[Rfam]
RNA sequence: GUAUAAGAUAGAAUAAUUAUGUCCAUAAAGAUGAAUACAGUCGUAUUCUGAUUAUAGCAUCGUGUCUGUUUGAGUGCAAUAUAUAAAGAACCUGGUACGGUUAUCCAGGUUCUUUUUUGA
Numbered sequence: 001g002u003a004u005a006a007g008a009u010a011g012a013a014u015a016a017u018u019a020u021g022u023c024c025a026u027a028a029a030g031a032u033g034a035a036u037a038c039a040g041u042c043g044u045a046u047u048c049u050g051a052u053u054a055u056a057g058c059a060u061c062g063u064g065u066c067u068g069u070u071u072g073a074g075u076g077c078a079a080u081a082u083a084u085a086a087a088g089a090a091c092c093u094g095g096u097a098c099g100g101u102u103a104u105c106c107a108g109g110u111u112c113u114u115u116u117u118u119g120a
Stems, first nucleotide, its partner, number of pairs: 035071001037069002039065001042062002085115011
The family of this 120-nucleotide sequence from Paenibacillus lutimineralis is "Bacillus sRNA ncr1015". The match comes from Rfam's covariance-model search (105 bits). Pairs were carried over by alignment from the consensus structure, which is taken from published work.